[Rfam]
RNA sequence: ACUCAACACUAAUUUGUUUGAAAAGGGUGAGUUUAGAUUGUAAAAGCAUGCCUUGCUAGUUUCUAGUUUAAGGAUCCUUGAUCAGUCUGGUAGCCCUAAACCUGUUUAUCGGGGUUU
Numbered sequence: 001a002c003u004c005a006a007c008a009c010u011a012a013u014u015u016g017u018u019u020g021a022a023a024a025g026g027g028u029g030a031g032u033u034u035a036g037a038u039u040g041u042a043a044a045a046g047c048a049u050g051c052c053u054u055g056c057u058a059g060u061u062u063c064u065a066g067u068u069u070a071a072g073g074a075u076c077c078u079u080g081a082u083c084a085g086u087c088u089g090g091u092a093g094c095c096c097u098a099a100a101c102c103u104g105u106u107u108a109u110c111g112g113g114g115u116u117u
Base pairs, nucleotide, nucleotide: 024097025096026095027094028093035088036087037086038085039084044079045078046077051073052072053071054070

6S-Flavo RNA: a 117-nucleotide RNA from Arenibacter nanhaiticus. A search with the family's covariance model found it, with a score of 96 bits. Lineage of the source: Bacteria > Pseudomonadati > Flavobacteriia > Flavobacteriales > Arenibacter.